[Rfam]
RNA sequence: UAGACAGAUUAUUGUAUUCGACUGUAUUCACGGUGCAAUCAUGGUCUAUUCAGAUGUUUUUAAACGGAAAGUGAAUCAAUAAACAUAAUAGACUUCU
Numbered sequence: 001u002a003g004a005c006a007g008a009u010u011a012u013u014g015u016a017u018u019c020g021a022c023u024g025u026a027u028u029c030a031c032g033g034u035g036c037a038a039u040c041a042u043g044g045u046c047u048a049u050u051c052a053g054a055u056g057u058u059u060u061u062a063a064a065c066g067g068a069a070a071g072u073g074a075a076u077c078a079a080u081a082a083a084c085a086u087a088a089u090a091g092a093c094u095u096c097u
Stems, first nucleotide, its partner, number of pairs: 003095002009091007017083002021080001023078002026076006034066002037059002040056003
This 97-nucleotide sequence from Nicotiana tabacum belongs to the Rfam family "MIR6152 microRNA precursor family". The family's consensus secondary structure was predicted with RNAalifold. Its family is annotated with miRNA-mediated post-transcriptional gene silencing and RISC complex in the Gene Ontology.